Shown here is a 153-nucleotide sequence from Coptis chinensis, a member of the family "U12 minor spliceosomal RNA". Lineage of the source: Eukaryota > Embryophyta > Euphyllophyta > Spermatophyta > Coptis. The literature on the family includes a 2002 paper in Mol Cell by Otake et al., "The divergent U12-type spliceosome is required for pre-mRNA splicing and is essential for development in Drosophila". Pairs were carried over by alignment from the consensus structure.
Nucleotides: 153
Stems, first nucleotide, its partner, number of pairs: 004023005032053008055075004092153001097150005103144001105141002108138001110136001117131004
Number, partner (000 for none) and nucleotide at each position: 001000u002000u003000g004023c005022c006021u007020u008019a009000a010000a011000c012000u013000a014000a015000u016000g017000a018000g019008u020007a021006a022005g023004g024000a025000a026000a027000a028000c029000a030000a031000a032053g033052c034051g035050a036049g037048u038047g039046g040000u041000g042000a043000g044000a045000g046039c047038c048037a049036u050035u051034c052033g053032c054000c055075g056074c057073g058072c059000u060000a061000a062000a063000c064000g065000c066000a067000a068000u069000u070000c071000u072058g073057c074056g075055c076000a077000a078000u079000u080000a081000u082000u083000u084000u085000u086000g087000g088000a089000g090000g091000g092153g093000u094000u095000a096000u097150a098149g099148g100147c101146u102000g103144g104000c105141c106140a107000a108138g109000u110136g111000u112000u113000g114000a115000c116000g117131c118130u119129g120128c121000u122000u123000a124000c125000u126000u127000u128120g129119c130118a131117g132000a133000a134000c135000u136110c137000u138108c139000u140106u141105g142000u143000g144103c145000g146101g147100g148099c149098c150097u151000c152000c153092c